This 98-nucleotide RNA from Rhinopithecimicrobium faecis belongs to the Rfam family "SAM riboswitch aptamer (S box leader)". About the family: The SAM riboswitch is found upstream of a number of genes which code for proteins involved in methionine or cysteine biosynthesis in Gram-positive bacteria. Its family is annotated with regulation of gene expression in the Gene Ontology.
RNA sequence: CGCUUAUAGAGAAAGGCUGAGGGAAUGGACCCGAUGAAGCCUUAGCAACCUGUCCCUUGACAAGGUGCUGCAUUCUACCCAAUUGGGAAAGAUAAGCU
Number, nucleotide and partner (000 for none) at each position: 001c000002g097003c096004u095005u094006a093007u092008a000009g000010a000011g000012a000013a043014a042015g041016g040017c039018u000019g000020a000021g032022g031023g030024a000025a000026u077027g076028g075029a074030c023031c022032c021033g000034a000035u000036g000037a000038a000039g017040c016041c015042u014043u013044a069045g068046c067047a066048a000049c065050c064051u062052g061053u060054c059055c000056c000057u000058u000059g054060a053061c052062a051063a000064g050065g049066u047067g046068c045069u044070g000071c000072a000073u090074u029075c028076u027077a026078c087079c086080c085081a000082a000083u000084u000085g080086g079087g078088a000089a000090a073091g000092a007093u006094a005095a004096g003097c002098u000